[Rfam]
RNA sequence: AUUUAAGACGUAAUGUACCUUCGUAUAUCCUCGAUAAUAUGGUUCGAGAGUCUCUACCGGGACACCGUAAAUGCCCCGACUACGAAGGCAGAUGUUCUUAUU
Numbered sequence: 001a002u003u004u005a006a007g008a009c010g011u012a013a014u015g016u017a018c019c020u021u022c023g024u025a026u027a028u029c030c031u032c033g034a035u036a037a038u039a040u041g042g043u044u045c046g047a048g049a050g051u052c053u054c055u056a057c058c059g060g061g062a063c064a065c066c067g068u069a070a071a072u073g074c075c076c077c078g079a080c081u082a083c084g085a086a087g088g089c090a091g092a093u094g095u096u097c098u099u100a101u102u
Stems, first nucleotide, its partner, number of pairs: 018088008030048005058078004063073002
A member of the RNA family "Purine riboswitch aptamer" from Anoxybacteroides amylolyticum, 102 nucleotides long. Gene Ontology term of the family: purine nucleobase biosynthetic process. Pairs were carried over by alignment from the consensus structure, which is taken from published work.